[Rfam]
RNA sequence: AGAGUAGGCGCAGGCGGUUGCAGACGUUCAGUCUGAGGAAAGUCCGGGCUCCCGAAAGACCAAACUUGCUGGGUAACGCCCAGUGCGGGUGACCGUGAGGAUAGUGCCACAGAAACAUACCGCCGAUGGUGUUGAGGCGUGCUCCGUUACGUCUGGCAUACAGGUAAGGGUGCAAGGGUGCGGUAAGAGCGCACCAGCAGCGUUGAGAGGCGCUGGCUCGGUAAACCCCGGUUGGGAGCAAGGCAGAAGGAGCUAAGGUUGGUCUUUUACCUGUUCCGGUAAGGGAUAUUUCCUUUACGAGUCCGCUUGAGGCGUUUGGUAACAAGCGUCCCAGAUAGAUAACUGCCCUCCUGCAAUAGGAGAACAGAACCCGGCUUAUGUCCGACUCCUCCC
Number, nucleotide and partner (000 for none) at each position: 001a000002g388003a387004g386005u385006a000007g383008g382009c000010g381011c380012a379013g347014g346015c345016g344017g343018u342019u341020g000021c035022a034023g033024a032025c031026g000027u000028u000029c000030a000031g025032u024033c023034u022035g021036a000037g000038g000039a000040a377041a376042g375043u000044c374045c373046g372047g371048g370049c238050u237051c236052c235053c000054g000055a000056a000057a000058g000059a000060c000061c279062a000063a233064a232065c231066u000067u230068g229069c083070u082071g081072g080073g079074u000075a000076a000077c000078g000079c073080c072081c071082a070083g069084u098085g096086c095087g094088g093089g000090u000091g000092a000093c088094c087095g086096u085097g000098a084099g228100g227101a000102u000103a000104g226105u225106g222107c221108c220109a000110c000111a000112g000113a000114a000115a000116c000117a000118u000119a000120c169121c168122g165123c164124c163125g000126a000127u160128g159129g000130u000131g000132u000133u000134g000135a000136g000137g000138c000139g000140u000141g000142c000143u000144c000145c000146g000147u000148u000149a000150c000151g000152u000153c000154u000155g000156g000157c000158a000159u128160a127161c000162a000163g124164g123165u122166a000167a000168g121169g120170g000171u000172g000173c000174a000175a000176g000177g195178g194179u193180g192181c191182g190183g000184u000185a000186a000187g000188a000189g000190c182191g181192c180193a179194c178195c177196a000197g217198c215199a214200g213201c212202g211203u210204u209205g000206a000207g000208a000209g204210g203211c202212g201213c200214u199215g198216g000217c197218u000219c000220g108221g107222u106223a000224a000225a105226c104227c100228c099229c068230g067231g065232u064233u063234g000235g052236g051237a050238g049239c000240a000241a000242g304243g303244c000245a000246g000247a295248a294249g293250g292251a291252g290253c000254u000255a000256a000257g000258g000259u000260u000261g000262g000263u000264c000265u000266u000267u000268u000269a000270c000271c000272u000273g287274u286275u285276c284277c283278g000279g061280u000281a000282a000283g277284g276285g275286a274287u273288a000289u000290u252291u251292c250293c249294u248295u247296u000297a000298c000299g000300a000301g000302u000303c243304c242305g000306c000307u000308u000309g000310a000311g330312g329313c328314g327315u326316u325317u324318g323319g000320u000321a000322a000323c318324a317325a316326g315327c314328g313329u312330c311331c000332c000333a000334g000335a000336u000337a000338g000339a000340u000341a019342a018343c017344u016345g015346c014347c013348c000349u000350c000351c000352u000353g000354c000355a000356a000357u000358a000359g000360g000361a000362g000363a000364a000365c000366a000367g000368a000369a000370c048371c047372c046373g045374g044375c042376u041377u040378a000379u012380g011381u010382c008383c007384g000385a005386c004387u003388c002389c000390u000391c000392c000393c000
RNA: Bacterial RNase P class A